[Rfam]
RNA: terC RNA
Organism: Pseudomonas sp. GV071
RNA sequence: CGGCGACACCGGGCCCCUCUGACAGCUUUUUAGCUGCCAUGUCGGAGUUGCAGU
Numbered sequence: 001c002g003g004c005g006a007c008a009c010c011g012g013g014c015c016c017c018u019c020u021g022a023c024a025g026c027u028u029u030u031u032a033g034c035u036g037c038c039a040u041g042u043c044g045g046a047g048u049u050g051c052a053g054u
Base pairs, nucleotide, nucleotide: 006048007047009045010044011043012042023036024035025034026033027032